[Rfam]
RNA sequence: UUCUUAUCGCGAGAGAUGGAGGGAAGUGGCCCUAUGAAAUCUCAGCAACCAGCCUAACAAGGUCAGGUGCUAAAUCCAUCAAGUUUUUUUGAAAACUUGAAAGAUAAGAA
Numbered sequence: 001u002u003c004u005u006a007u008c009g010c011g012a013g014a015g016a017u018g019g020a021g022g023g024a025a026g027u028g029g030c031c032c033u034a035u036g037a038a039a040u041c042u043c044a045g046c047a048a049c050c051a052g053c054c055u056a057a058c059a060a061g062g063u064c065a066g067g068u069g070c071u072a073a074a075u076c077c078a079u080c081a082a083g084u085u086u087u088u089u090u091g092a093a094a095a096c097u098u099g100a101a102a103g104a105u106a107a108g109a110a
Base pairs, nucleotide, nucleotide: 001110002109003108004107005106006105007104008103013043014042015041016040017039021032022031023030026079027078028077029076044071045070046069047068049067050066051063053061075102080099081098082097083096084095085094
The family of this 110-nucleotide RNA from Anaerobacillus isosaccharinicus is "SAM riboswitch aptamer (S box leader)".
Lineage of the source: Bacteria > Bacillati > Caryophanales > Bacillaceae > Anaerobacillus.